[Rfam]
RNA: Bacterial large subunit ribosomal RNA, nucleotides 657 to 887
RNA sequence: GAGUCAGUGCCGUGUCGCGAGGUUAACCUGGUAGGGGGAGCCGUAGCGAAAGCGAGUCCGAAAGGGCGCCUAUGAGUGGCACGGUCUGGACCCGAAGCGGGGUGAUCUACCCAUGGCCAGGUUGAAGCACGUGUAAGAGCGUGUGGAGGACCGAACCCACUUCAGUUGAAAAUGGAGGGGAUGAGCUGUGGGUAGGGGUGAAAGGCCAAUCAAACUCCGUGAUAGCUGGUU
Dot-bracket structure: ....(((.((((((((((..((((..(((....)))..))))...((....))..((((....))))........)))))))))))))..((.(...((((((...((((((((((((.((((...((((((......))))))....))))...(((.(((((........))))))))..).))))))))))).(((.....)))......))))))......).))..